[Rfam]
The record is a 75-nucleotide RNA sequence from Saccharopolyspora gloriosae, which matches "ASpks TB sRNA" in Rfam. Lineage of the source: Bacteria > Actinomycetota > Actinomycetes > Pseudonocardiaceae > Saccharopolyspora. A search with the family's covariance model found it, with a score of 92 bits. The base pairs follow the family's consensus structure, which is taken from published work.

Nucleotides: 075
Stems, first nucleotide, its partner, number of pairs: 015025003031071003038065002043060002047056003
Number, partner (000 for none) and nucleotide at each position: 001000c002000u003000u004000c005000a006000c007000c008000g009000a010000u011000c012000c013000c014000a015025g016024c017023c018000a019000c020000a021000g022000c023017g024016g025015c026000c027000g028000g029000u030000c031071c032070g033069c034000c035000u036000c037000g038065c039064g040000g041000u042000c043060c044059u045000u046000g047056c048055c049054g050000u051000a052000g053000g054049u055048g056047g057000c058000c059044a060043g061000c062000a063000g064039c065038g066000c067000c068000u069033g070032c071031g072000c073000c074000u075000c